Shown here is a 455-nucleotide RNA from Geotrypetes seraphini, a member of the family "Vertebrate telomerase RNA". Gene Ontology terms of the family: telomerase catalytic core complex, telomere maintenance via telomerase and telomerase activity. The family's consensus secondary structure is taken from published work. About the family: Telomerase is a ribonucleoprotein reverse transcriptase that synthesises telomeric DNA. Telomerase RNAs differ greatly in sequence and structure between vertebrates, ciliates and yeasts, but they share a 5' pseudoknot structure close to the template sequence. Rfam classes the family as a non-coding RNA gene. Its Rfam clan is "Telomerase clan". A search with the family's covariance model found it, with a score of 252 bits.
RNA sequence: UUCUCUCAGGAGAGGGGGCGGUUUCUUUUUCUUCUAACCCUAAUGUGGUGCUUCGGCAGCCGCUCUCCGCCGGGCACCGCUCACUGUUUUUCUAGCUAACUUUCAGUGAGUGGAGAGAGCGAAGUCCAGGUGCUCGACGAGGGAGGAAAAAAAAAUGUUAGCUGGGGGGGACGUCCCUUUCCCGAGAGCCCGCGCUGGCUUUUCUCUCCCUCGGGCCCGUUGGCGUUAGCCCCCGGCCUCCCUCGCUCUAGGCCGCGGUCAGCCCGGAGCUCCGGCAGGGGUUCCACUGCUGCCGCGAAGAGUUCGCCUCUGUCAGCCUUGAGGCGGCCGGGAUGGGAACUGGCGGGCUCGCGGCAUUUGCGCGGGAAAGAGCAAAAAACGGUGAACUGGGCGCCUGCUGGGGGUCGCGUCCCUGAAGUGUGGGACGUGCGAUCUGUGCGCUCGUUCAGACACAC
Numbered sequence: 001u002u003c004u005c006u007c008a009g010g011a012g013a014g015g016g017g018g019c020g021g022u023u024u025c026u027u028u029u030u031c032u033u034c035u036a037a038c039c040c041u042a043a044u045g046u047g048g049u050g051c052u053u054c055g056g057c058a059g060c061c062g063c064u065c066u067c068c069g070c071c072g073g074g075c076a077c078c079g080c081u082c083a084c085u086g087u088u089u090u091u092c093u094a095g096c097u098a099a100c101u102u103u104c105a106g107u108g109a110g111u112g113g114a115g116a117g118a119g120c121g122a123a124g125u126c127c128a129g130g131u132g133c134u135c136g137a138c139g140a141g142g143g144a145g146g147a148a149a150a151a152a153a154a155a156u157g158u159u160a161g162c163u164g165g166g167g168g169g170g171a172c173g174u175c176c177c178u179u180u181c182c183c184g185a186g187a188g189c190c191c192g193c194g195c196u197g198g199c200u201u202u203u204c205u206c207u208c209c210c211u212c213g214g215g216c217c218c219g220u221u222g223g224c225g226u227u228a229g230c231c232c233c234c235g236g237c238c239u240c241c242c243u244c245g246c247u248c249u250a251g252g253c254c255g256c257g258g259u260c261a262g263c264c265c266g267g268a269g270c271u272c273c274g275g276c277a278g279g280g281g282u283u284c285c286a287c288u289g290c291u292g293c294c295g296c297g298a299a300g301a302g303u304u305c306g307c308c309u310c311u312g313u314c315a316g317c318c319u320u321g322a323g324g325c326g327g328c329c330g331g332g333a334u335g336g337g338a339a340c341u342g343g344c345g346g347g348c349u350c351g352c353g354g355c356a357u358u359u360g361c362g363c364g365g366g367a368a369a370g371a372g373c374a375a376a377a378a379a380c381g382g383u384g385a386a387c388u389g390g391g392c393g394c395c396u397g398c399u400g401g402g403g404g405u406c407g408c409g410u411c412c413c414u415g416a417a418g419u420g421u422g423g424g425a426c427g428u429g430c431g432a433u434c435u436g437u438g439c440g441c442u443c444g445u446u447c448a449g450a451c452a453c454a455c
Base pairs, nucleotide, nucleotide: 005186006185007184009182010181011180012179014178015177016176017175018174019173021172022171023170024169025168062120063119064118065117066116078112079111080110081109082108083107084106085105086104095162096161097160098159099158100157101155102154103153189366190365191364192363193362194361195360214349215348216347217346218345219344220343221342222341232332233331234330235329236328237327238326241324242323243322244321245320254297255296256295257294258293260292261291262290263289266285267284268283299311300310301309302308384447385446386445387444389443390442391441392440393439394438405432406431407430408429409428410425411424412423413422